[Rfam]
RNA: MIR396 microRNA precursor family
RNA sequence: CUCUGUAUUCUUCCACAGCUUUCUUGAACUGCAAUUUUGUCUUAGAUCCUUCAUUACUGAUUUAUGUAUCAACUGCGGUUCAAUAAAGCUGUGGGAAGAUACCGAUA
Numbered sequence: 001c002u003c004u005g006u007a008u009u010c011u012u013c014c015a016c017a018g019c020u021u022u023c024u025u026g027a028a029c030u031g032c033a034a035u036u037u038u039g040u041c042u043u044a045g046a047u048c049c050u051u052c053a054u055u056a057c058u059g060a061u062u063u064a065u066g067u068a069u070c071a072a073c074u075g076c077g078g079u080u081c082a083a084u085a086a087a088g089c090u091g092u093g094g095g096a097a098g099a100u101a102c103c104g105a106u107a
Stems, first nucleotide, its partner, number of pairs: 003104001005102003013094003017090006024083004029078005